[Rfam]
Shown here is a 178-nucleotide sequence from Prochloron didemni, a member of the family "Antisense RNA which regulates isiA expression". The base pairs follow the family's consensus structure, which was predicted with PFOLD. The organism belongs to Prochloron, within Bacteria. Rfam 15.1 lists 3,397 matches to the family in 659 species. The literature on the family includes a 2006 paper in Proc Natl Acad Sci U S A by Duhring et al., "An internal antisense RNA regulates expression of the photosynthesis gene isiA".
RNA sequence: GAUAACCAUAAAUAACUGCUGGAUUGAGAGUUGGGCCUGUCACCAGGCGGACGGUUCCCGUUCCCGCAUCAUACAGUCCACCCCAAUACAUGGCUUUGCCAACUCGCUAUAAGGCCCCUAAUCCUAGAAAUAGCAGAUGAUGUCCUAAAAUCAACCCCAACUGCUUGGGAUCGUCCCA
Numbered sequence: 001g002a003u004a005a006c007c008a009u010a011a012a013u014a015a016c017u018g019c020u021g022g023a024u025u026g027a028g029a030g031u032u033g034g035g036c037c038u039g040u041c042a043c044c045a046g047g048c049g050g051a052c053g054g055u056u057c058c059c060g061u062u063c064c065c066g067c068a069u070c071a072u073a074c075a076g077u078c079c080a081c082c083c084c085a086a087u088a089c090a091u092g093g094c095u096u097u098g099c100c101a102a103c104u105c106g107c108u109a110u111a112a113g114g115c116c117c118c119u120a121a122u123c124c125u126a127g128a129a130a131u132a133g134c135a136g137a138u139g140a141u142g143u144c145c146u147a148a149a150a151u152c153a154a155c156c157c158c159a160a161c162u163g164c165u166u167g168g169g170a171u172c173g174u175c176c177c178a
Stems, first nucleotide, its partner, number of pairs: 136175006144169005
Dot-bracket structure: .......................................................................................................................................((((((..(((((................)))))))))))...